A member of the RNA family "mir-584 microRNA precursor family" from Tupaia belangeri, 97 nucleotides long. The base pairs follow the family's consensus structure, which was predicted with RNAalifold. The source organism's lineage runs through Eukaryota, Craniata, Euteleostomi, Boreoeutheria and Tupaia. Rfam's curators put it in the seed alignment.
RNA sequence: UAGGAUGACCAACCAACCUGGUUUGCUUGGGACUGUGCAGGCUCCCAGGAUAGACAGUCCUAGGUAAACCAGGAUAAGUUGGUUACCCUAGGGCUGG
Numbered sequence: 001u002a003g004g005a006u007g008a009c010c011a012a013c014c015a016a017c018c019u020g021g022u023u024u025g026c027u028u029g030g031g032a033c034u035g036u037g038c039a040g041g042c043u044c045c046c047a048g049g050a051u052a053g054a055c056a057g058u059c060c061u062a063g064g065u066a067a068a069c070c071a072g073g074a075u076a077a078g079u080u081g082g083u084u085a086c087c088c089u090a091g092g093g094c095u096g097g
Stems, first nucleotide, its partner, number of pairs: 001090004006085008015075001019071018038053001040051001042049001